[Rfam]
RNA: mir-3017 microRNA precursor family
Organism: Acyrthosiphon pisum
RNA sequence: GCGUGUUCUGUGACUGACUCGGCUGGCGCCCGCAGGUCUGUCACGAAACACGGGA
Numbered sequence: 001g002c003g004u005g006u007u008c009u010g011u012g013a014c015u016g017a018c019u020c021g022g023c024u025g026g027c028g029c030c031c032g033c034a035g036g037u038c039u040g041u042c043a044c045g046a047a048a049c050a051c052g053g054g055a
Base pairs, nucleotide, nucleotide: 002052003051004050005049006048007047009045010044011043012042013041014040016038017037018036020035022033025030